RNA sequence: ACCUAGCCCCGAUAGAAGUGGAAAUCCUUUUAUGCUGGGGUUCAGCAUAAAAGAUUGAAACGGAUAGCGGGACACGAG
Numbered sequence: 001a002c003c004u005a006g007c008c009c010c011g012a013u014a015g016a017a018g019u020g021g022a023a024a025u026c027c028u029u030u031u032a033u034g035c036u037g038g039g040g041u042u043c044a045g046c047a048u049a050a051a052a053g054a055u056u057g058a059a060a061c062g063g064a065u066a067g068c069g070g071g072a073c074a075c076g077a078g
Stems, first nucleotide, its partner, number of pairs: 009070003013066002018061002023056004029051008
RNA: Flavo-1 RNA